[Rfam]
RNA sequence: UGACUUUUUCCUAAGUCAAACUUCUCUAGAUUUGAUCAAGUUUAUAGAAAAAUAUAGCAAUAUUUUCAACACAAAGCAAAGAAACUAUCAAAAUAUGUUUAAUGUUAGAUGUAAUGAAACUAAUUUGGUGCUAUAAGUGUUGCUAUAUUUUUCUAUAAACUUGGUAAAAUUUUCAAGAAGUUUGACUUAAAAAAGUCAAAA
Numbered sequence: 001u002g003a004c005u006u007u008u009u010c011c012u013a014a015g016u017c018a019a020a021c022u023u024c025u026c027u028a029g030a031u032u033u034g035a036u037c038a039a040g041u042u043u044a045u046a047g048a049a050a051a052a053u054a055u056a057g058c059a060a061u062a063u064u065u066u067c068a069a070c071a072c073a074a075a076g077c078a079a080a081g082a083a084a085c086u087a088u089c090a091a092a093a094u095a096u097g098u099u100u101a102a103u104g105u106u107a108g109a110u111g112u113a114a115u116g117a118a119a120c121u122a123a124u125u126u127g128g129u130g131c132u133a134u135a136a137g138u139g140u141u142g143c144u145a146u147a148u149u150u151u152u153c154u155a156u157a158a159a160c161u162u163g164g165u166a167a168a169a170u171u172u173u174c175a176a177g178a179a180g181u182u183u184g185a186c187u188u189a190a191a192a193a194a195g196u197c198a199a200a201a
Stems, first nucleotide, its partner, number of pairs: 006195004012189014032169002045155008055145003059141007068132001072128001074126003

The family of this 201-nucleotide RNA from Oryza punctata is "MIR1435 microRNA precursor family".
Its family is annotated with miRNA-mediated post-transcriptional gene silencing and RISC complex in the Gene Ontology.
NCBI's taxonomy places the organism under Eukaryota, Viridiplantae, Tracheophyta, Oryzoideae, Oryza.
The match comes from Rfam's covariance-model search (105 bits).